Background: Rfam assigns this 129-nucleotide sequence from Tursiops truncatus to the family "Small nucleolar RNA SNORA22". About the family: ACA22 is a member of the H/ACA class of snoRNA that guide the sites of modification of uridines to pseudouridines. It is annotated as an H/ACA-box small nucleolar RNA. A search with the family's covariance model found it, with a score of 88 bits. The base pairs follow the family's consensus structure, which was predicted with RNAfold. Rfam 15.1 lists 883 matches to the family in 606 species. The organism belongs to Tursiops, within Eukaryota.
RNA sequence: UUGCACAGUGAACACCAAGAGUGCCUUAGUUCCUUGGUUUCAGCUCUGUGCUAGAGCAAUGUCUGUUCUUUUUCUCUACACUGAAAGCUUAUUUAUCCUUUGUAAAGUAUUCAGAAAGUCAGCACAUCA
Numbered sequence: 001u002u003g004c005a006c007a008g009u010g011a012a013c014a015c016c017a018a019g020a021g022u023g024c025c026u027u028a029g030u031u032c033c034u035u036g037g038u039u040u041c042a043g044c045u046c047u048g049u050g051c052u053a054g055a056g057c058a059a060u061g062u063c064u065g066u067u068c069u070u071u072u073u074c075u076c077u078a079c080a081c082u083g084a085a086a087g088c089u090u091a092u093u094u095a096u097c098c099u100u101u102g103u104a105a106a107g108u109a110u111u112c113a114g115a116a117a118g119u120c121a122g123c124a125c126a127u128c129a
Stems, first nucleotide, its partner, number of pairs: 003051006010045001015037005021032001023030002053069006075115003079107001082104001083101003087097001